[Rfam]
RNA sequence: GAAACGUCAACCCGGCACUGCCAAUGCAGACAAGACCGGGACCGUUCCGUCGCAAGGCGGGACAUCC
Numbered sequence: 001g002a003a004a005c006g007u008c009a010a011c012c013c014g015g016c017a018c019u020g021c022c023a024a025u026g027c028a029g030a031c032a033a034g035a036c037c038g039g040g041a042c043c044g045u046u047c048c049g050u051c052g053c054a055a056g057g058c059g060g061g062a063c064a065u066c067c
Stems, first nucleotide, its partner, number of pairs: 011040005018029004044063008